This 60-nucleotide sequence from Coleofasciculus chthonoplastes belongs to the Rfam family "Nitrogen stress-induced RNA 1". Taxonomically the source falls in Coleofasciculus chthonoplastes (Bacteria, Cyanobacteriota, Coleofasciculales, Coleofasciculus). The base pairs follow the family's consensus structure.
RNA sequence: UGGUAGAUGCACCCUGAUUGACGUUCCCUGGCUCACUGAUUUGGGCUAGGGAUUUUUUUU
Numbered sequence: 001u002g003g004u005a006g007a008u009g010c011a012c013c014c015u016g017a018u019u020g021a022c023g024u025u026c027c028c029u030g031g032c033u034c035a036c037u038g039a040u041u042u043g044g045g046c047u048a049g050g051g052a053u054u055u056u057u058u059u060u
Stems, first nucleotide, its partner, number of pairs: 002013003025052011
Rfam's curators put it in the seed alignment.